Shown here is a 93-nucleotide RNA sequence from Firmicutes bacterium CAG:240, a member of the family "Guanidine-I riboswitch aptamer". Lineage of the source: Bacteria > Bacillati > Bacillota. A search with the family's covariance model found it, with a score of 82 bits. The base pairs follow the family's consensus structure.
RNA sequence: UAUAAUGUUUUAUAGGGUUCCGGCAUUUAUGCGACUGGACCGAGAUAAAACGGCGCAUAAAGCGCUGCACGGAGGGAUAAAAGCCCGGGAGAA
Numbered sequence: 001u002a003u004a005a006u007g008u009u010u011u012a013u014a015g016g017g018u019u020c021c022g023g024c025a026u027u028u029a030u031g032c033g034a035c036u037g038g039a040c041c042g043a044g045a046u047a048a049a050a051c052g053g054c055g056c057a058u059a060a061a062g063c064g065c066u067g068c069a070c071g072g073a074g075g076g077a078u079a080a081a082a083g084c085c086c087g088g089g090a091g092a093a
Stems, first nucleotide, its partner, number of pairs: 007051006015041002020038002022035001023032003052066005068088001070091001074086003